[Rfam]
This 115-nucleotide RNA from Hymenobacter crusticola belongs to the Rfam family "SAM riboswitch aptamer (S box leader)". The organism belongs to Hymenobacter, within Bacteria. The base pairs follow the family's consensus structure, which is taken from published work.

Nucleotides: 115
Stems, first nucleotide, its partner, number of pairs: 002114007013042005021031003025076004043068004048064002051060003072107001077104006
Number, partner (000 for none) and nucleotide at each position: 001000c002114a003113c004112u005111u006110a007109u008108c009000a010000a011000g012000a013042a014041a015040g016039g017038c018000g019000g020000a021031g022030g023029g024000a025076c026075a027074g028073g029023c030022c031021c032000u033000g034000u035000g036000a037000a038017g039016c040015c041014u042013u043068a044067g045066c046065a047000a048064c049063c050000a051060g052059u053058a054000g055000c056000a057000a058053u059052a060051c061000c062000a063049g064048g065046u066045g067044c068043u069000a070000a071000a072107u073028c074027c075026u076025g077104u078103u079102c080101u081100g082099a083000g084000a085000a086000g087000g088000c089000c090000g091000c092000g093000g094000c095000c096000g097000a098000c099082u100081u101080a102079g103078a104077a105000g106000a107072a108008g109007a110006u111005a112004a113003g114002u115000u